[Rfam]
RNA sequence: GAGAUACCACAAUGGAGCAGGACUUGCUUCAGUGGGUCUUUGGUGCUCACUGAGUCUGCUCCUUGGGAGUGUCACU
Numbered sequence: 001g002a003g004a005u006a007c008c009a010c011a012a013u014g015g016a017g018c019a020g021g022a023c024u025u026g027c028u029u030c031a032g033u034g035g036g037u038c039u040u041u042g043g044u045g046c047u048c049a050c051u052g053a054g055u056c057u058g059c060u061c062c063u064u065g066g067g068a069g070u071g072u073c074a075c076u
Stems, first nucleotide, its partner, number of pairs: 001075001003073005010066001012064001014062006021056003029053008038043001

The family of this 76-nucleotide sequence from Myotis myotis is "mir-9229 microRNA precursor family". Its family is annotated with RISC complex and miRNA-mediated post-transcriptional gene silencing in the Gene Ontology.